[Rfam]
RNA sequence: GCGCAGGCCGUGCCAACCGGACGCGACGGGAAAUGGGGAACACGGAAAUUUUUCCGGUUUCUUUCCGUGGCCAACGAAAUGGCAGGCGAGCCCCUUAACCGUCCGGCCU
Numbered sequence: 001g002c003g004c005a006g007g008c009c010g011u012g013c014c015a016a017c018c019g020g021a022c023g024c025g026a027c028g029g030g031a032a033a034u035g036g037g038g039a040a041c042a043c044g045g046a047a048a049u050u051u052u053u054c055c056g057g058u059u060u061c062u063u064u065c066c067g068u069g070g071c072c073a074a075c076g077a078a079a080u081g082g083c084a085g086g087c088g089a090g091c092c093c094c095u096u097a098a099c100c101g102u103c104c105g106g107c108c109u
Stems, first nucleotide, its partner, number of pairs: 006108004011023002014020001025103005035094004041069007070083003